[Rfam]
The family of this 142-nucleotide RNA sequence from Pseudochrobactrum saccharolyticum is "Alphaproteobacterial sRNA ar35".
RNA sequence: AUAGACGUUGCUAUGCAGCGCGUUUCUCACAGCGCUCACAAACGUCUUCAUCAAUUUAAACCUUUGACCACGGAUGUACUGGCACUGGUAAUUAAAUGGUGAGUAGGAAGGUCGGUGCAGAGUUGCCCCGGCCUUUUUUAUU
Numbered sequence: 001a002u003a004g005a006c007g008u009u010g011c012u013a014u015g016c017a018g019c020g021c022g023u024u025u026c027u028c029a030c031a032g033c034g035c036u037c038a039c040a041a042a043c044g045u046c047u048u049c050a051u052c053a054a055u056u057u058a059a060a061c062c063u064u065u066g067a068c069c070a071c072g073g074a075u076g077u078a079c080u081g082g083c084a085c086u087g088g089u090a091a092u093u094a095a096a097u098g099g100u101g102a103g104u105a106g107g108a109a110g111g112u113c114g115g116u117g118c119a120g121a122g123u124u125g126c127c128c129c130g131g132c133c134u135u136u137u138u139u140a141u142u
Stems, first nucleotide, its partner, number of pairs: 003047004008041002017036004050100003054097003060089003065084002068082003102141001105138011117126003

The pairing is the family consensus, mapped onto this sequence. Rfam classes the family as a small RNA. Taxonomically the source falls in Pseudochrobactrum (Bacteria, Pseudomonadota, Alphaproteobacteria, Brucellaceae). On this family, see del Val et al., RNA Biol 2012: "A survey of sRNA families in alpha-proteobacteria". It scores 100 bits against the family's covariance model.